[Rfam]
A member of the RNA family "Bacterial small signal recognition particle RNA" from Corynebacterium endometrii, 99 nucleotides long. About the family: The signal recognition particle (SRP) is a universally conserved ribonucleoprotein involved in the co-translational targeting of proteins to membranes. It is annotated as a non-coding RNA gene.
RNA sequence: GGCAGGAUCUCGCGUGGCGUUUAUCCUGUGAAUUCCCCCAGGGCAGGAAUGCAGCAAGGGUCAGCAGGCUCUGACGGGUGCGUGAGGUCCCCUUUAACG
Numbered sequence: 001g002g003c004a005g006g007a008u009c010u011c012g013c014g015u016g017g018c019g020u021u022u023a024u025c026c027u028g029u030g031a032a033u034u035c036c037c038c039c040a041g042g043g044c045a046g047g048a049a050u051g052c053a054g055c056a057a058g059g060g061u062c063a064g065c066a067g068g069c070u071c072u073g074a075c076g077g078g079u080g081c082g083u084g085a086g087g088u089c090c091c092c093u094u095u096a097a098c099g
Stems, first nucleotide, its partner, number of pairs: 004093003009086006015078001018076004025068005035060003043052003
Dot-bracket structure: ...(((..(((((((..((((...(((((.....(((.....(((....))).....)))...)))))....)))).)..))))))....)))......